[Rfam]
RNA sequence: AGAAAGGGUUCAUGUUGUGUGUGGUACAUGUAGUGCAGCCUGAUUGCUCUUUUUGCCAAAUGCACAUCAAGAGAUUUUGGAAGUAUAAUUUUUUGGUACAUUGACAGCUGGUGGUUGUUGGUCCCAGCACCCUA
Numbered sequence: 001a002g003a004a005a006g007g008g009u010u011c012a013u014g015u016u017g018u019g020u021g022u023g024g025u026a027c028a029u030g031u032a033g034u035g036c037a038g039c040c041u042g043a044u045u046g047c048u049c050u051u052u053u054u055g056c057c058a059a060a061u062g063c064a065c066a067u068c069a070a071g072a073g074a075u076u077u078u079g080g081a082a083g084u085a086u087a088a089u090u091u092u093u094u095g096g097u098a099c100a101u102u103g104a105c106a107g108c109u110g111g112u113g114g115u116u117g118u119u120g121g122u123c124c125c126a127g128c129a130c131c132c133u134a
Base pairs, nucleotide, nucleotide: 008084009083010082013026014025015024016023017022027055028054030052032050033049035047036046037045038044056079058077059076060075061074103131107128108127109126110125111124113123114122115121116120
About this RNA
U11 spliceosomal RNA: a 134-nucleotide RNA sequence from Castor canadensis. Its Rfam clan is "U1 clan". Rfam classes the family as a spliceosomal small nuclear RNA. Its family is annotated with mRNA 5'-splice site recognition, pre-mRNA 5'-splice site binding and U11 snRNP in the Gene Ontology. A reference for the family is Marz et al. (2008), "Evolution of spliceosomal snRNA genes in metazoan animals", J Mol Evol.